[Rfam]
RNA sequence: CCAGGGGCUCACGCCCCCGGCUACAUUAUUUCGCCCCUCGCGGGGCU
Numbered sequence: 001c002c003a004g005g006g007g008c009u010c011a012c013g014c015c016c017c018c019g020g021c022u023a024c025a026u027u028a029u030u031u032c033g034c035c036c037c038u039c040g041c042g043g044g045g046c047u
Stems, first nucleotide, its partner, number of pairs: 001020002004017005033046005